[Rfam]
RNA sequence: UCACGGACGGGAGGCUGUGACGCGCGGCCCAACACCCCUGGUCGCCGGGACCGCGCCGAGCCACUGGCGAGACCGACCCGCCGUAA
Numbered sequence: 001u002c003a004c005g006g007a008c009g010g011g012a013g014g015c016u017g018u019g020a021c022g023c024g025c026g027g028c029c030c031a032a033c034a035c036c037c038c039u040g041g042u043c044g045c046c047g048g049g050a051c052c053g054c055g056c057c058g059a060g061c062c063a064c065u066g067g068c069g070a071g072a073c074c075g076a077c078c079c080g081c082c083g084u085a086a
Stems, first nucleotide, its partner, number of pairs: 001086001003084004008080004013062003022056006029049001040074002042070005
c-di-GMP-II-GAG riboswitch aptamer: an 86-nucleotide RNA.